[Rfam]
RNA: mir-5697 microRNA precursor family
RNA sequence: AAGUGUUUCAUGAUAAAGGGUUGAUCUCUCAUACACCCUUUAUCAUGAAACUACUUGA
Numbered sequence: 001a002a003g004u005g006u007u008u009c010a011u012g013a014u015a016a017a018g019g020g021u022u023g024a025u026c027u028c029u030c031a032u033a034c035a036c037c038c039u040u041u042a043u044c045a046u047g048a049a050a051c052u053a054c055u056u057g058a
Stems, first nucleotide, its partner, number of pairs: 001056004005051006012044010